[Rfam]
Rfam assigns this 247-nucleotide RNA from Nothoprocta perdicaria to the family "Small nucleolar RNA SNORD17". For this family Rfam cites "RNomics: an experimental approach that identifies 201 candidates for novel, small, non-messenger RNAs in mouse" (Huttenhofer et al., EMBO J, 2001). The match comes from Rfam's covariance-model search (120 bits). From the family's description: The snoRNA HBI-43 belongs to the C/D family of snoRNAs, guiding 2'O-ribose methylation at position U3797 of the 28S rRNA. Pseudouridylation in position U3797 is predicted to be guided by the H/ACA snoRNA ACA48.
RNA sequence: GUGAGGUGAUGACGAAGUUUAUCCAUUCUCUGAGUGCAGCGGCGCUGCCCUCCUGCAGCACCCUGGUCCCUGUUCUAGGGUCAGGGUGCUGUGUGGCCUUCAGAGAGCCCUGCAGUGUCCCAGUGUCCUACUGGGGGCUGCUGGAGCCUGUGGGUGGCUGCCUGCAGGAGGGGGGUGUCCUGUCAGGGCUGGAGCCCCCUUUGUGGGGGCUGCAUCCCCACCGAGAUGAGGGAUGAUGUCUGAUCAC
Numbered sequence: 001g002u003g004a005g006g007u008g009a010u011g012a013c014g015a016a017g018u019u020u021a022u023c024c025a026u027u028c029u030c031u032g033a034g035u036g037c038a039g040c041g042g043c044g045c046u047g048c049c050c051u052c053c054u055g056c057a058g059c060a061c062c063c064u065g066g067u068c069c070c071u072g073u074u075c076u077a078g079g080g081u082c083a084g085g086g087u088g089c090u091g092u093g094u095g096g097c098c099u100u101c102a103g104a105g106a107g108c109c110c111u112g113c114a115g116u117g118u119c120c121c122a123g124u125g126u127c128c129u130a131c132u133g134g135g136g137g138c139u140g141c142u143g144g145a146g147c148c149u150g151u152g153g154g155u156g157g158c159u160g161c162c163u164g165c166a167g168g169a170g171g172g173g174g175g176u177g178u179c180c181u182g183u184c185a186g187g188g189c190u191g192g193a194g195c196c197c198c199c200u201u202u203g204u205g206g207g208g209g210c211u212g213c214a215u216c217c218c219c220a221c222c223g224a225g226a227u228g229a230g231g232g233a234u235g236a237u238g239u240c241u242g243a244u245c246a247c
Stems, first nucleotide, its partner, number of pairs: 010246003017239002020236001023232002026230003030225002034221002039184001040182001041180002043177004048172010059088007068080004093161006107147002109144001112141005118136008186219002188216001190214002193211001195209004